[Rfam]
RNA sequence: AUACUUACCUGGGCGGGGCCUAUCGCUGAUCCAAAAGGGCGAUGACCUACGACAAGUCCCUCCAUUGCACCACGGUCGGGCGAGUUGUAGCAUUUCCCCAAGGGGAAAAUGCACGUCAUAAUUUGUGGCAGCGGAGGGCUCGCGUUCGCGCGGCCCUCCA
Numbered sequence: 001a002u003a004c005u006u007a008c009c010u011g012g013g014c015g016g017g018g019c020c021u022a023u024c025g026c027u028g029a030u031c032c033a034a035a036a037g038g039g040c041g042a043u044g045a046c047c048u049a050c051g052a053c054a055a056g057u058c059c060c061u062c063c064a065u066u067g068c069a070c071c072a073c074g075g076u077c078g079g080g081c082g083a084g085u086u087g088u089a090g091c092a093u094u095u096c097c098c099c100a101a102g103g104g105g106a107a108a109a110u111g112c113a114c115g116u117c118a119u120a121a122u123u124u125g126u127g128g129c130a131g132c133g134g135a136g137g138g139c140u141c142g143c144g145u146u147c148g149c150g151c152g153g154c155c156c157u158c159c160a
Stems, first nucleotide, its partner, number of pairs: 012117004016048003020044001023042005049088004056081003062075002090112003093108001094106002097103002133159005141152004
U1 spliceosomal RNA: a 160-nucleotide RNA sequence from Marchantia polymorpha. It is annotated as a spliceosomal small nuclear RNA.